This 62-nucleotide sequence from Mastigocoleus testarum belongs to the Rfam family "Nitrogen stress-induced RNA 1". The literature on the family includes a 2010 paper in J Mol Biol by Ionescu et al., "Heterocyst-specific transcription of NsiR1, a non-coding RNA encoded in a tandem array of direct repeats in cyanobacteria". Pairs were carried over by alignment from the consensus structure.

RNA sequence: UGGUAGAUGCAUCCUGAUAAUCCAUUCCCCUUGCUAGCUCAAACUGGUGCGGGGAUUUUUUU
Numbered sequence: 001u002g003g004u005a006g007a008u009g010c011a012u013c014c015u016g017a018u019a020a021u022c023c024a025u026u027c028c029c030c031u032u033g034c035u036a037g038c039u040c041a042a043a044c045u046g047g048u049g050c051g052g053g054g055a056u057u058u059u060u061u062u
Stems, first nucleotide, its partner, number of pairs: 002013003027054004032049006